[Rfam]
RNA sequence: ACCUUAUCAAGAGAGGUGGAGGGACUGGCCCUAUGAUACCCGGCAACCGCUGUUUCAAACAGAAUGGUGCUAAAUCCUUAAGAACAUUGCGUUCUUGCAGAUGAGGC
Numbered sequence: 001a002c003c004u005u006a007u008c009a010a011g012a013g014a015g016g017u018g019g020a021g022g023g024a025c026u027g028g029c030c031c032u033a034u035g036a037u038a039c040c041c042g043g044c045a046a047c048c049g050c051u052g053u054u055u056c057a058a059a060c061a062g063a064a065u066g067g068u069g070c071u072a073a074a075u076c077c078u079u080a081a082g083a084a085c086a087u088u089g090c091g092u093u094c095u096u097g098c099a100g101a102u103g104a105g106g107c
Stems, first nucleotide, its partner, number of pairs: 002106007013041001015040003021031003027077002042071004047067002050062003075099001080096006
Dot-bracket structure: .(((((((....(.(((...(((...[[)))......))))((((.((.(((.......)))...))))))...(]]..((((((.....))))))..)))))))).

This 107-nucleotide sequence from Bacillus subtilis belongs to the Rfam family "SAM riboswitch aptamer (S box leader)". From the family's description: The SAM riboswitch is found upstream of a number of genes which code for proteins involved in methionine or cysteine biosynthesis in Gram-positive bacteria. It is one of the family's seed sequences. The organism belongs to Bacillus subtilis subsp. subtilis, within Bacteria.